[Rfam]
The family of this 113-nucleotide RNA sequence from a Mycobacteriales bacterium is "SAM riboswitch aptamer (S box leader)". Rfam links the family to the GO term regulation of gene expression. Rfam's curators write: The SAM riboswitch is found upstream of a number of genes which code for proteins involved in methionine or cysteine biosynthesis in Gram-positive bacteria. The base pairs follow the family's consensus structure, which is taken from published work.
RNA sequence: AAUCCAUCGAGACCGGCUGAGGGACAGGCCCUUUGACGCCGGGGCAACCAGCGGACUUCACGCCGCCCGGUGCCAACUCCUGCGGGGGCCAACCGGCCCGCGAUAGAUGGGUG
Numbered sequence: 001a002a003u004c005c006a007u008c009g010a011g012a013c014c015g016g017c018u019g020a021g022g023g024a025c026a027g028g029c030c031c032u033u034u035g036a037c038g039c040c041g042g043g044g045c046a047a048c049c050a051g052c053g054g055a056c057u058u059c060a061c062g063c064c065g066c067c068c069g070g071u072g073c074c075a076a077c078u079c080c081u082g083c084g085g086g087g088g089c090c091a092a093c094c095g096g097c098c099c100g101c102g103a104u105a106g107a108u109g110g111g112u113g
Stems, first nucleotide, its partner, number of pairs: 002112007013042005021031003025082004043074004048070002051066004078105001083102002086099003